This 157-nucleotide RNA from Desulfallas thermosapovorans belongs to the Rfam family "Ribosomal protein L10 leader".
NCBI's taxonomy places the organism under Bacteria, Bacillota, Clostridia, Desulfallaceae, Desulfallas thermosapovorans.
A search with the family's covariance model found it, with a score of 52 bits.
RNA sequence: CUGCAUAGUGAUACCUAGCCGUAGACAGCAGGUGCCGUAAAACAGGCUUAAUGGCCAAGUGCCGCCAGCCGAGGCCGGGAGGGUUAACCUUUUAAGCUUAUGCUUAACGGGCCUCUGGCAUGCUGUCUUGCGCGCCGGGGGCUUUUUUGAUGCUUCA
Numbered sequence: 001c002u003g004c005a006u007a008g009u010g011a012u013a014c015c016u017a018g019c020c021g022u023a024g025a026c027a028g029c030a031g032g033u034g035c036c037g038u039a040a041a042a043c044a045g046g047c048u049u050a051a052u053g054g055c056c057a058a059g060u061g062c063c064g065c066c067a068g069c070c071g072a073g074g075c076c077g078g079g080a081g082g083g084u085u086a087a088c089c090u091u092u093u094a095a096g097c098u099u100a101u102g103c104u105u106a107a108c109g110g111g112c113c114u115c116u117g118g119c120a121u122g123c124u125g126u127c128u129u130g131c132g133c134g135c136c137g138g139g140g141g142c143u144u145u146u147u148u149g150a151u152g153c154u155u156c157a
Stems, first nucleotide, its partner, number of pairs: 028069002031066003034047003111142009
A reference for the family is Zengel and Lindahl (1994), "Diverse mechanisms for regulating ribosomal protein synthesis in Escherichia coli", Prog Nucleic Acid Res Mol Biol.